[Rfam]
Shown here is a 34-nucleotide RNA from Carnobacterium maltaromaticum, a member of the family "L31-Firmicutes ribosomal protein leader". The family's RNA type in Rfam is cis-regulatory leader. Clan: Ribosomal Protein L31 Leader clan. On this family, see Eckert and Weinberg, BMC Microbiol 2020: "Discovery of 20 novel ribosomal leader candidates in bacteria and archaea". Taxonomically the source falls in Carnobacterium maltaromaticum (Bacteria, Bacillati, Bacillota, Carnobacterium).
RNA sequence: CUCUGAUCCAGCAAAUGAAUCAGGGCAAAGGGAG
Numbered sequence: 001c002u003c004u005g006a007u008c009c010a011g012c013a014a015a016u017g018a019a020u021c022a023g024g025g026c027a028a029a030g031g032g033a034g
Stems, first nucleotide, its partner, number of pairs: 001025007